[Rfam]
RNA sequence: GUUGUUAUAUGAUGUUUUAAUUGAAAAACAUUUCUUGCAGCGGUUAAAACUGAUGUUAUUACAAC
Numbered sequence: 001g002u003u004g005u006u007a008u009a010u011g012a013u014g015u016u017u018u019a020a021u022u023g024a025a026a027a028a029c030a031u032u033u034c035u036u037g038c039a040g041c042g043g044u045u046a047a048a049a050c051u052g053a054u055g056u057u058a059u060u061a062c063a064a065c
Stems, first nucleotide, its partner, number of pairs: 001065005014050010029037002